[Rfam]
RNA sequence: UGGCGGGGGGGCACCACAAGGGGUGAAGCUUGCGGCUUAAUUGGAGUCAACGCCGGAAACCUUACCCGGGGCGACAGCAGGAUGAAGGCCAGGCUAACGACCUUGCCGGACGAGCUGAGAGGAGGUGCAUGGCCGUCGUCAGCUCGUGCCGUGAGGUGUCCGGUUAAGUCCGGCAACGAGCGAGACCCCCACCCCUAGUUGCUUCCCCGCUCUUCGGGACGGGGGGCACACUAGGGGGACUGCCGGCGUAAGCCGGAGGAAGGAGGGGGCCACGGCAGGUCAGUAUGCCCCGAAACCCCGGGGCUGCACGCGAGCUGCAAUGGCGGGGACAGCGGGAUCCGACCCCGAAAGGGGGAGGCAAUCCCGUAAACCCCGCCCCAGUAGGGAAUCGAGGGCUGCAACUCGCCCUCGUGAACGUGGAAUCCCUAGUAACCGCGUGUCACCAACGCGCGGUGAAUACGUCCCUGCCCCUUGCACACACCGCCCGUCGCACCACCCGAGGGAGUUCUCUGCGAGGCCCCUUGCCUGGGGCAACCCGGGUGGGGGGACGAGCAGAGAACUCCCGAGGGGGGUGAAGUCGUAACAAGG
Numbered sequence: 001u002g003g004c005g006g007g008g009g010g011g012c013a014c015c016a017c018a019a020g021g022g023g024u025g026a027a028g029c030u031u032g033c034g035g036c037u038u039a040a041u042u043g044g045a046g047u048c049a050a051c052g053c054c055g056g057a058a059a060c061c062u063u064a065c066c067c068g069g070g071g072c073g074a075c076a077g078c079a080g081g082a083u084g085a086a087g088g089c090c091a092g093g094c095u096a097a098c099g100a101c102c103u104u105g106c107c108g109g110a111c112g113a114g115c116u117g118a119g120a121g122g123a124g125g126u127g128c129a130u131g132g133c134c135g136u137c138g139u140c141a142g143c144u145c146g147u148g149c150c151g152u153g154a155g156g157u158g159u160c161c162g163g164u165u166a167a168g169u170c171c172g173g174c175a176a177c178g179a180g181c182g183a184g185a186c187c188c189c190c191a192c193c194c195c196u197a198g199u200u201g202c203u204u205c206c207c208c209g210c211u212c213u214u215c216g217g218g219a220c221g222g223g224g225g226g227c228a229c230a231c232u233a234g235g236g237g238g239a240c241u242g243c244c245g246g247c248g249u250a251a252g253c254c255g256g257a258g259g260a261a262g263g264a265g266g267g268g269g270c271c272a273c274g275g276c277a278g279g280u281c282a283g284u285a286u287g288c289c290c291c292g293a294a295a296c297c298c299c300g301g302g303g304c305u306g307c308a309c310g311c312g313a314g315c316u317g318c319a320a321u322g323g324c325g326g327g328g329a330c331a332g333c334g335g336g337a338u339c340c341g342a343c344c345c346c347g348a349a350a351g352g353g354g355g356a357g358g359c360a361a362u363c364c365c366g367u368a369a370a371c372c373c374c375g376c377c378c379c380a381g382u383a384g385g386g387a388a389u390c391g392a393g394g395g396c397u398g399c400a401a402c403u404c405g406c407c408c409u410c411g412u413g414a415a416c417g418u419g420g421a422a423u424c425c426c427u428a429g430u431a432a433c434c435g436c437g438u439g440u441c442a443c444c445a446a447c448g449c450g451c452g453g454u455g456a457a458u459a460c461g462u463c464c465c466u467g468c469c470c471c472u473u474g475c476a477c478a479c480a481c482c483g484c485c486c487g488u489c490g491c492a493c494c495a496c497c498c499g500a501g502g503g504a505g506u507u508c509u510c511u512g513c514g515a516g517g518c519c520c521c522u523u524g525c526c527u528g529g530g531g532c533a534a535c536c537c538g539g540g541u542g543g544g545g546g547g548a549c550g551a552g553c554a555g556a557g558a559a560c561u562c563c564c565g566a567g568g569g570g571g572g573u574g575a576a577g578u579c580g581u582a583a584c585a586a587g588g
Stems, first nucleotide, its partner, number of pairs: 001478002003475003007472007016462002020426005025318001027316008035307002041056004065302007075117004080111001087107003091103003121291002124289004130285002132280003135276004142181006148157003160173004187268004192237007202226002206224003209220001211218002240259002243256005322377007334365003339358002343354004384416001390411007432454008481587001483584001486580002489577001491574004496569003501564013516549001518547013